Description: Rfam assigns this 217-nucleotide RNA sequence from Actinomadura logoneensis to the family "c-di-AMP riboswitch aptamer (ydaO/yuaA leader)".

[Rfam]
RNA sequence: GAGCAGGCAACGCCGAGUCCGCGCGCUGGCGCGGAGCCGGGGACCCACAGCGUCGGCCCGUCCGGGCAUCCGGACGGCGCGACCGCGGCGCACGGGGUGAAUCGGCGGUCCCAGCCCCCAGUUCAAGGCCCGUACGGGCCUGGUGAGGGAUCCGCCGUAGGGCUGCUUCCACGUCCGAACCCGACAGCUAACCCGGUAGGCGUCUGGAAGAAGGAGA
Numbered sequence: 001g002a003g004c005a006g007g008c009a010a011c012g013c014c015g016a017g018u019c020c021g022c023g024c025g026c027u028g029g030c031g032c033g034g035a036g037c038c039g040g041g042g043a044c045c046c047a048c049a050g051c052g053u054c055g056g057c058c059c060g061u062c063c064g065g066g067c068a069u070c071c072g073g074a075c076g077g078c079g080c081g082a083c084c085g086c087g088g089c090g091c092a093c094g095g096g097g098u099g100a101a102u103c104g105g106c107g108g109u110c111c112c113a114g115c116c117c118c119c120a121g122u123u124c125a126a127g128g129c130c131c132g133u134a135c136g137g138g139c140c141u142g143g144u145g146a147g148g149g150a151u152c153c154g155c156c157g158u159a160g161g162g163c164u165g166c167u168u169c170c171a172c173g174u175c176c177g178a179a180c181c182c183g184a185c186a187g188c189u190a191a192c193c194c195g196g197u198a199g200g201c202g203u204c205u206g207g208a209a210g211a212a213g214g215a216g217a
Stems, first nucleotide, its partner, number of pairs: 011202004018035007036197006046094001095182003103157006160176004
A search with the family's covariance model found it, with a score of 54 bits.